[Rfam]
Nucleotides: 068
Stems, first nucleotide, its partner, number of pairs: 001066004006038005013028004043055004
Number, partner (000 for none) and nucleotide at each position: 001066u002065u003064a004063c005000u006038a007037u008036g009035g010034u011000g012000g013028u014027u015026g016025c017000a018000u019000a020000g021000u022000u023000c024000a025016g026015c027014a028013g029000a030000u031000u032000a033000c034010a035009u036008c037007a038006u039000g040000a041000a042000g043055a044054a045053a046052u047000a048000u049000u050000u051000g052046a053045u054044u055043u056000g057000u058000c059000u060000g061000a062000u063004g064003u065002a066001a067000a068000a